RNA sequence: AAAGUGGAUAGAGGUUGCGAUAUUUAAUAGUAUGUUUACAGAGUUAAGCAGCAAGGAAGUAAACAGAAAGGAAAUUUCGCCGAAACAUAUAACUGAAGCUUUAAGGUUAUUAUGUUGGGGUUAUAUAGAAUAUGUAUAACACUGUCACAAAAAGGAUUUGUGAUGAGCUAUUACUAUG
Number, nucleotide and partner (000 for none) at each position: 001a000002a000003a000004g000005u000006g000007g172008a171009u170010a169011g168012a000013g000014g000015u000016u000017g080018c079019g078020a077021u000022a075023u074024u073025u072026a000027a000028u000029a000030g000031u000032a000033u065034g064035u063036u062037u061038a060039c059040a000041g000042a000043g000044u000045u000046a000047a000048g000049c000050a000051g000052c000053a000054a000055g000056g000057a000058a000059g039060u038061a037062a036063a035064c034065a033066g000067a000068a000069a000070g000071g000072a025073a024074a023075u022076u000077u020078c019079g018080c017081c000082g000083a000084a116085a115086c114087a113088u112089a110090u109091a108092a107093c106094u105095g000096a000097a000098g000099c000100u000101u000102u000103a000104a000105g094106g093107u092108u091109a090110u089111u000112a088113u087114g086115u085116u084117g143118g142119g000120g140121u139122u138123a137124u136125a135126u134127a133128g000129a000130a000131u000132a000133u127134g126135u125136a124137u123138a122139a121140c120141a000142c118143u117144g000145u163146c162147a161148c160149a159150a158151a157152a000153a000154g000155g000156a000157u151158u150159u149160g148161u147162g146163a145164u000165g000166a000167g000168c011169u010170a009171u008172u007173a000174c000175u000176a000177u000178g000
Background:
Shown here is a 178-nucleotide RNA sequence from Clostridium celatum, a member of the family "Lysine riboswitch aptamer". Gene Ontology term of the family: lysine biosynthetic process. Riboswitches are metabolite binding domains within certain messenger RNAs that serve as precision sensors for their corresponding targets. The organism belongs to Clostridium celatum, within Bacteria.